[Rfam]
RNA sequence: GAUCUGGUAAUAUGGUAGAAAUAAAUUGAUAUCUUUCUACCAUACUUUCUAUUAUUGUAUAUUUGUAUUGUCUAAAGUUGUACUG
Numbered sequence: 001g002a003u004c005u006g007g008u009a010a011u012a013u014g015g016u017a018g019a020a021a022u023a024a025a026u027u028g029a030u031a032u033c034u035u036u037c038u039a040c041c042a043u044a045c046u047u048u049c050u051a052u053u054a055u056u057g058u059a060u061a062u063u064u065g066u067a068u069u070g071u072c073u074a075a076a077g078u079u080g081u082a083c084u085g
Stems, first nucleotide, its partner, number of pairs: 006049002009046001011044011023032001
RNA: Plastid-psbM 3UTR RNA
Organism: Papaver somniferum